[Rfam]
RNA sequence: AGAUCAGUGAUGAACGUACUUAUCUGAGGAUGCUGAGGGACUCAUUCCAGGUGUCGAUCUGAGGUCC
Numbered sequence: 001a002g003a004u005c006a007g008u009g010a011u012g013a014a015c016g017u018a019c020u021u022a023u024c025u026g027a028g029g030a031u032g033c034u035g036a037g038g039g040a041c042u043c044a045u046u047c048c049a050g051g052u053g054u055c056g057a058u059c060u061g062a063g064g065u066c067c
Stems, first nucleotide, its partner, number of pairs: 002066004
This 67-nucleotide sequence from Orycteropus afer belongs to the Rfam family "Small nucleolar RNA SNORD109A". Rfam links the family to the GO terms nucleolus and RNA processing. The family has 7 seed sequences and 412 matches in Rfam 15.1. The family's RNA type in Rfam is C/D-box small nucleolar RNA. Its Rfam clan is "SNORD74 clan". A reference for the family is Runte et al. (2001), "The IC-SNURF-SNRPN transcript serves as a host for multiple small nucleolar RNA species and as an antisense RNA for UBE3A", Hum Mol Genet. Humans have two copies of the SNORD109 gene, SNORD109A and SNORD109B. It scores 73 bits against the family's covariance model.